[Rfam]
Nucleotides: 118
Stems, first nucleotide, its partner, number of pairs: 001039001003037008026053004044074005060103004076099006089113005
Number, partner (000 for none) and nucleotide at each position: 001039c002000g003037c004036g005035u006034g007033g008032c009031u010030g011000g012000u013000c014000g015000g016000g017000c018000a019000a020000c021000c022000a023000a024000c025000g026053g027052c028051a029050g030010c031009g032008g033007c034006c035005a036004c037003g038000g039001g040000a041000u042000a043000c044074c045073c046072g047071g048070g049000a050029c051028u052027g053026u054000g055000g056000g057000a058000u059000a060103g061102u062101c063100u064000u065000g066000a067000g068000a069000c070048c071047c072046c073045g074044g075000g076099c077098g078097a079096g080095g081094u082000g083000g084000c085000g086000a087000a088000c089113u090112c091111a092110g093109c094081g095080c096079c097078u098077c099076g100063a101062g102061a103060c104000g105000a106000a107000c108000g109093g110092c111091u112090g113089a114000c115000g116000a117000g118000u
Shown here is a 118-nucleotide sequence from Burkholderia cepacia, a member of the family "Betaproteobacteria-1 RNA". Rfam classes the family as a small RNA. The sequence is in the family's curated seed alignment.